[Rfam]
RNA sequence: ACAGAGAGAGAGAGAGAGAUCCCCCUCUGUAAACAGGGUCCCUGACACACACUGUGUCAGGGACCCUGUUUACAGAGGGGGUCUCUCUCUCUCUCUCUGUGUGUGU
Numbered sequence: 001a002c003a004g005a006g007a008g009a010g011a012g013a014g015a016g017a018g019a020u021c022c023c024c025c026u027c028u029g030u031a032a033a034c035a036g037g038g039u040c041c042c043u044g045a046c047a048c049a050c051a052c053u054g055u056g057u058c059a060g061g062g063a064c065c066c067u068g069u070u071u072a073c074a075g076a077g078g079g080g081g082u083c084u085c086u087c088u089c090u091c092u093c094u095c096u097c098u099g100u101g102u103g104u105g106u
Base pairs, nucleotide, nucleotide: 010093011092012091013090014089015088016087018085019084021081022080023079024078025077026076027075028074029073030072031071032070033069034068036066037065038064039063040062041061042060043059044058045057046056047055048054
Description: mraW RNA: a 106-nucleotide RNA sequence from Chiloscyllium punctatum. The family's consensus secondary structure is taken from published work. NCBI's taxonomy places the organism under Eukaryota, Craniata, Gnathostomata, Galeomorphii, Chiloscyllium. The family's RNA type in Rfam is cis-regulatory element. A search with the family's covariance model found it, with a score of 53 bits.